[Rfam]
RNA sequence: AAUGGGGUGAAAGUCCCCUGAUGCCAAUUGCCUAUUCGGGCGUCUAGCAGGAGGUAGGGUUUGUAAAGCGAUUUGCAGGCUCAAGUGACCUUGAACGAUAAAUGCAAAACAGCGGGCUACAACGAAA
Numbered sequence: 001a002a003u004g005g006g007g008u009g010a011a012a013g014u015c016c017c018c019u020g021a022u023g024c025c026a027a028u029u030g031c032c033u034a035u036u037c038g039g040g041c042g043u044c045u046a047g048c049a050g051g052a053g054g055u056a057g058g059g060u061u062u063g064u065a066a067a068g069c070g071a072u073u074u075g076c077a078g079g080c081u082c083a084a085g086u087g088a089c090c091u092u093g094a095a096c097g098a099u100a101a102a103u104g105c106a107a108a109a110c111a112g113c114g115g116g117c118u119a120c121a122a123c124g125a126a127a
Stems, first nucleotide, its partner, number of pairs: 020044005052091004057082006066073002104120001106118001
RNA: Group II catalytic intron D1-D4-4